[Rfam]
About this RNA:
The family of this 112-nucleotide RNA sequence from Allobrachymonas denitrificans is "Glycine riboswitch aptamer". For this family Rfam cites "A glycine-dependent riboswitch that uses cooperative binding to control gene expression" (Mandal et al., Science, 2004).
RNA sequence: GUGUGUCGUGCUGGAGAGUGCGGUGCGUUGCCACAGCGAUGCCUGCCACCGAAGGAGCAAGCGGCCGAUCGUGGCGGCGAAUCUCUCAGGUAAAGUGGACAGCGCGGCCCCG
Number, nucleotide and partner (000 for none) at each position: 001g000002u000003g000004u000005g000006u107007c106008g105009u104010g103011c102012u101013g100014g000015a000016g000017a000018g000019u000020g046021c045022g044023g043024u000025g000026c000027g000028u000029u000030g000031c000032c000033a000034c000035a000036g000037c000038g000039a000040u000041g000042c000043c023044u022045g021046c020047c000048a091049c090050c089051g087052a086053a000054g000055g085056a084057g083058c000059a000060a000061g078062c077063g000064g000065c000066c000067g000068a000069u000070c000071g000072u000073g000074g000075c000076g000077g062078c061079g000080a000081a000082u000083c057084u056085c055086u052087c051088a000089g050090g049091u048092a000093a000094a000095g000096u000097g000098g000099a000100c013101a012102g011103c010104g009105c008106g007107g006108c000109c000110c000111c000112g000